[Rfam]
Shown here is a 180-nucleotide RNA from Metabacillus lacus, a member of the family "Lysine riboswitch aptamer". NCBI's taxonomy places the organism under Bacteria, Bacillota, Caryophanales, Bacillaceae, Metabacillus. It scores 130 bits against the family's covariance model. Rfam's curators write: Riboswitches are metabolite binding domains within certain messenger RNAs that serve as precision sensors for their corresponding targets. Allosteric rearrangement of mRNA structure is mediated by ligand binding, and this results in modulation of gene expression. This family includes riboswitches that sense lysine in a number of genes involved in lysine metabolism, including lysC.

RNA sequence: AAUGAUGAUAGAGGUGCGAGUUUCAAAAGUAAGUAUUCUGAGGAAAUUGGAUUCCUGUGAAGAGUGCUGAAAGGGGAAAUCGCCGAAGCGGAGACAGUUCCAAGUCUGUCCUCGCUGGUUCUGCACUGAACAAGUGCCGGAUUGUCAGAAAGAGUACCUUUCUGGAGAGCUAUCUUAUUG
Numbered sequence: 001a002a003u004g005a006u007g008a009u010a011g012a013g014g015u016g017c018g019a020g021u022u023u024c025a026a027a028a029g030u031a032a033g034u035a036u037u038c039u040g041a042g043g044a045a046a047u048u049g050g051a052u053u054c055c056u057g058u059g060a061a062g063a064g065u066g067c068u069g070a071a072a073g074g075g076g077a078a079a080u081c082g083c084c085g086a087a088g089c090g091g092a093g094a095c096a097g098u099u100c101c102a103a104g105u106c107u108g109u110c111c112u113c114g115c116u117g118g119u120u121c122u123g124c125a126c127u128g129a130a131c132a133a134g135u136g137c138c139g140g141a142u143u144g145u146c147a148g149a150a151a152g153a154g155u156a157c158c159u160u161u162c163u164g165g166a167g168a169g170c171u172a173u174c175u176u177a178u179u180g
Stems, first nucleotide, its partner, number of pairs: 007174005016083004021078004032068008087116005093110005117143005123137005145165007